Small nucleolar RNA snoR97: a 109-nucleotide RNA from Lactuca sativa. Gene Ontology terms of the family: nucleolus and RNA processing. The match comes from Rfam's covariance-model search (84 bits). Rfam 15.1 lists 862 matches to the family in 223 species. Pairs were carried over by alignment from the consensus structure, which was predicted with WAR. The organism belongs to Lactuca, within Eukaryota. A reference for the family is Marker et al. (2002), "Experimental RNomics: identification of 140 candidates for small non-messenger RNAs in the plant Arabidopsis thaliana", Curr Biol.
RNA sequence: AAUACACAAACGGUUUGGAGUCUGAAAAAACUCAGAGAGCAAUGUGUUGUCAUCAGCUUCUUCUUUCGUAACAUUAACGAGAUUGGAAUUAAAUAACAGCACUAGAUUU
Numbered sequence: 001a002a003u004a005c006a007c008a009a010a011c012g013g014u015u016u017g018g019a020g021u022c023u024g025a026a027a028a029a030a031c032u033c034a035g036a037g038a039g040c041a042a043u044g045u046g047u048u049g050u051c052a053u054c055a056g057c058u059u060c061u062u063c064u065u066u067c068g069u070a071a072c073a074u075u076a077a078c079g080a081g082a083u084u085g086g087a088a089u090u091a092a093a094u095a096a097c098a099g100c101a102c103u104a105g106a107u108u109u
Base pairs, nucleotide, nucleotide: 044102045101046100047099048098049097055090056089058087059086060085062082063081064080065079
Dot-bracket structure: ...........................................((((((.....((.(((.((((.............))))..))).))......)))))).......